Overview: Glycine riboswitch aptamer: a 95-nucleotide RNA from Actinophytocola sp. Rfam's curators write: This family represents the bacterial glycine riboswitch. The match comes from Rfam's covariance-model search (67 bits). The source organism's lineage runs through Bacteria, Actinomycetota, Pseudonocardiales, Pseudonocardiaceae and Actinophytocola.

RNA sequence: GGAACCCGAGCGGGAGAGUCCGGUCAUGGCCGACCGGCGCCGAAGGAGCAAAUCCUCCCCGGAACCUCUCAGGCACCCAGGACCGCUCGGGGGAG
Numbered sequence: 001g002g003a004a005c006c007c008g009a010g011c012g013g014g015a016g017a018g019u020c021c022g023g024u025c026a027u028g029g030c031c032g033a034c035c036g037g038c039g040c041c042g043a044a045g046g047a048g049c050a051a052a053u054c055c056u057c058c059c060c061g062g063a064a065c066c067u068c069u070c071a072g073g074c075a076c077c078c079a080g081g082a083c084c085g086c087u088c089g090g091g092g093g094a095g
Stems, first nucleotide, its partner, number of pairs: 006090008020037004039074003042070002046068003053061001